[Rfam]
The record is a 104-nucleotide RNA from Hymenochirus boettgeri, which matches "Small nucleolar RNA SNORD89" in Rfam. The family's consensus secondary structure was predicted with RNAalifold. snoRNA HBII-289 belongs to the family of C/D snoRNAs. Rfam links the family to the GO terms RNA processing and nucleolus. NCBI's taxonomy places the organism under Eukaryota, Deuterostomia, Vertebrata, Gnathostomata, Hymenochirus. By type it is a C/D-box small nucleolar RNA. It scores 51 bits against the family's covariance model. Rfam 15.1 lists 642 matches to the family in 573 species.
Nucleotides: 104
Base pairs, nucleotide, nucleotide: 001104002103004101005100006099007098014094016092024033025032034090035089037087038086039084040082041081043079045065046064049061050060051059052058069076
Number, partner (000 for none) and nucleotide at each position: 001104g002103c003000u004101a005100u006099g007098g008000a009000g010000u011000g012000a013000u014094g015000a016092c017000c018000u019000a020000a021000a022000a023000g024033g025032c026000c027000g028000a029000a030000u031000u032025g033024c034090a035089g036000c037087u038086c039084c040082u041081c042000u043079g044000a045065g046064c047000a048000g049061u050060u051059u052058u053000u054000c055000u056000c057000u058052a059051g060050a061049g062000g063000u064046g065045c066000a067000a068000u069076g070000a071000c072000a073000a074000a075000g076069c077000c078000c079043c080000u081041g082040a083000a084039g085000c086038g087037a088000c089035c090034u091000u092016g093000g094014c095000u096000g097000a098007c099006c100005a101004u102000u103002g104001c